[Rfam]
RNA: t44 RNA
Organism: Pantoea alhagi
RNA sequence: AAUCUCCCGUGUAUAUAACACACACAUAUCGGCACAUGCGCCGGGGUGCCUUUCGGGGUCGGUUGCAUGGGAUAUGUGGAGGCCCAAC
Numbered sequence: 001a002a003u004c005u006c007c008c009g010u011g012u013a014u015a016u017a018a019c020a021c022a023c024a025c026a027u028a029u030c031g032g033c034a035c036a037u038g039c040g041c042c043g044g045g046g047u048g049c050c051u052u053u054c055g056g057g058g059u060c061g062g063u064u065g066c067a068u069g070g071g072a073u074a075u076g077u078g079g080a081g082g083c084c085c086a087a088c
Stems, first nucleotide, its partner, number of pairs: 023078008035069005040063004048059004